Background:
The record is a 69-nucleotide RNA sequence from Albula goreensis, which matches "mir-8/mir-141/mir-200 microRNA precursor family" in Rfam. A reference for the family is Lagos-Quintana et al. (2001), "Identification of novel genes coding for small expressed RNAs", Science. Rfam 15.1 lists 2,669 matches to the family in 883 species. The organism belongs to Albula, within Eukaryota. The match comes from Rfam's covariance-model search (68 bits).
[Rfam]
RNA sequence: GCGUACAUCUUACCUGACAGUGCUGGACUGUACAUCUGUGAUCUAACACUGUCUGGUAACGAUGUUCGC
Numbered sequence: 001g002c003g004u005a006c007a008u009c010u011u012a013c014c015u016g017a018c019a020g021u022g023c024u025g026g027a028c029u030g031u032a033c034a035u036c037u038g039u040g041a042u043c044u045a046a047c048a049c050u051g052u053c054u055g056g057u058a059a060c061g062a063u064g065u066u067c068g069c
Stems, first nucleotide, its partner, number of pairs: 002068002005065005010059005016053007024045004
Record summary: Clan: mir-8 microRNA precursor clan.